[Rfam]
RNA sequence: UGCCCAAGCUGCUGUCUGGAAGACUAGUGAUUUUGUUGUGGGACUGAAUAAAGAUGACAACAAAUCACAGUCUGCCUCCCAGCAUGGGGCA
Numbered sequence: 001u002g003c004c005c006a007a008g009c010u011g012c013u014g015u016c017u018g019g020a021a022g023a024c025u026a027g028u029g030a031u032u033u034u035g036u037u038g039u040g041g042g043a044c045u046g047a048a049u050a051a052a053g054a055u056g057a058c059a060a061c062a063a064a065u066c067a068c069a070g071u072c073u074g075c076c077u078c079c080c081a082g083c084a085u086g087g088g089g090c091a
Base pairs, nucleotide, nucleotide: 002090003089004088005087010084012082013081014080018076019075021073022072023071024070025069027068028067029066030065031064032063033062035061036060037059038058039057
RNA: mir-7 microRNA precursor family
Organism: Megalops atlanticus